RNA sequence: CCAGCCGUAAGGGGGGUCGUGAAGGAAGCACGUAUCAAAAUUCCGAGCCUAUGAACAAGAACGUGAUAUUAAGGCCGUGUAGGUGGGAGAGGGCGCAACUGUACCUUAACCCUAUAGAUGAACGUAAACCGAAGCGGUAAAUCGCUGGGGCCACGGAAUGACAGUUAUGCAU
Numbered sequence: 001c002c003a004g005c006c007g008u009a010a011g012g013g014g015g016g017u018c019g020u021g022a023a024g025g026a027a028g029c030a031c032g033u034a035u036c037a038a039a040a041u042u043c044c045g046a047g048c049c050u051a052u053g054a055a056c057a058a059g060a061a062c063g064u065g066a067u068a069u070u071a072a073g074g075c076c077g078u079g080u081a082g083g084u085g086g087g088a089g090a091g092g093g094c095g096c097a098a099c100u101g102u103a104c105c106u107u108a109a110c111c112c113u114a115u116a117g118a119u120g121a122a123c124g125u126a127a128a129c130c131g132a133a134g135c136g137g138u139a140a141a142u143c144g145c146u147g148g149g150g151c152c153a154c155g156g157a158a159u160g161a162c163a164g165u166u167a168u169g170c171a172u
Stems, first nucleotide, its partner, number of pairs: 001016002005012002028172001031169002036164001040159006047151004062147001063145005074138003078134001080132001082130003085112002091106003
The record is a 172-nucleotide RNA sequence from Erysipelotrichaceae bacterium RD49, which matches "Group II catalytic intron D1-D4-3" in Rfam.
For this family Rfam cites "The ins and outs of group II introns" (Bonen and Vogel, Trends Genet, 2001).
Taxonomically the source falls in Erysipelotrichaceae (Bacteria, Bacillati, Erysipelotrichia, Erysipelotrichales).